[Rfam]
RNA sequence: CCUGCCGAAGUUUCCCUCAGGAUAGCAGUAACGUUUUCAGUUUUAUGAGGUAAAGCGAAUGAUUAGAGGCCUGGGGGUUGAAACUAACCUUCACCUAUUCUCAAACUUUAAAUAUGUAAGAAGUCCUUGUUACUUAGUUGAACGUGGACAUUUGAAUGCACCGUUACUAGUGGGCCAUUUUUGGUAAGCAGAACUGGCGAUGCGGGAUGAACCGAACGGGGGGUUAAGGUGCCGGAAUGCACGCUCAUCAGACACCACAAAAGGUGUUGGUUCAUCUAGACAGCAGGACGGUGGCCAUGGAAGUCGGAAUCCGCUAAGGAGUGUGUAACAACUCACCUGCCGAAUGAACCAGCCCUGAAAAUGGAUGGCGCUCAAGCGUGCUACCCAUACCCCCCCUCCGCGGCAGGCUUUAUGCCGCGGAGAGUAGGCAGGCGUGGAGGCCCGUGACGAAGCCCAGGGGGUGACCCCGGGUCGAACGGCCUCUAGUGCAGAU
Numbered sequence: 001c002c003u004g005c006c007g008a009a010g011u012u013u014c015c016c017u018c019a020g021g022a023u024a025g026c027a028g029u030a031a032c033g034u035u036u037u038c039a040g041u042u043u044u045a046u047g048a049g050g051u052a053a054a055g056c057g058a059a060u061g062a063u064u065a066g067a068g069g070c071c072u073g074g075g076g077g078u079u080g081a082a083a084c085u086a087a088c089c090u091u092c093a094c095c096u097a098u099u100c101u102c103a104a105a106c107u108u109u110a111a112a113u114a115u116g117u118a119a120g121a122a123g124u125c126c127u128u129g130u131u132a133c134u135u136a137g138u139u140g141a142a143c144g145u146g147g148a149c150a151u152u153u154g155a156a157u158g159c160a161c162c163g164u165u166a167c168u169a170g171u172g173g174g175c176c177a178u179u180u181u182u183g184g185u186a187a188g189c190a191g192a193a194c195u196g197g198c199g200a201u202g203c204g205g206g207a208u209g210a211a212c213c214g215a216a217c218g219g220g221g222g223g224u225u226a227a228g229g230u231g232c233c234g235g236a237a238u239g240c241a242c243g244c245u246c247a248u249c250a251g252a253c254a255c256c257a258c259a260a261a262a263g264g265u266g267u268u269g270g271u272u273c274a275u276c277u278a279g280a281c282a283g284c285a286g287g288a289c290g291g292u293g294g295c296c297a298u299g300g301a302a303g304u305c306g307g308a309a310u311c312c313g314c315u316a317a318g319g320a321g322u323g324u325g326u327a328a329c330a331a332c333u334c335a336c337c338u339g340c341c342g343a344a345u346g347a348a349c350c351a352g353c354c355c356u357g358a359a360a361a362u363g364g365a366u367g368g369c370g371c372u373c374a375a376g377c378g379u380g381c382u383a384c385c386c387a388u389a390c391c392c393c394c395c396c397u398c399c400g401c402g403g404c405a406g407g408c409u410u411u412a413u414g415c416c417g418c419g420g421a422g423a424g425u426a427g428g429c430a431g432g433c434g435u436g437g438a439g440g441c442c443c444g445u446g447a448c449g450a451a452g453c454c455c456a457g458g459g460g461g462u463g464a465c466c467c468c469g470g471g472u473c474g475a476a477c478g479g480c481c482u483c484u485a486g487u488g489c490a491g492a493u
Base pairs, nucleotide, nucleotide: 001432002431003430004429005428006427011024013022014021015020027168028167029166030165031164032163033162041121042120043119044118045117046116047115053109054107055106060103061102062101065098067096068095069094072093073092074091075090076089077088079086123149124148125147126146128144129143130142131141174198175197176196177195179193180192181191182190183189203214204213205212218395219394220393221392222391224389228385229384230383237382239381242378243377244376262356263355264354266353267352268351269350270349271348272347273346274345275344283340284339285338286337287336289313290312291311295307296306314318319334323332324331396422397421398420399419400418401417402416403415404414433488435485436484437483438482439481440480441479442478444477445476452472453471458467459466460465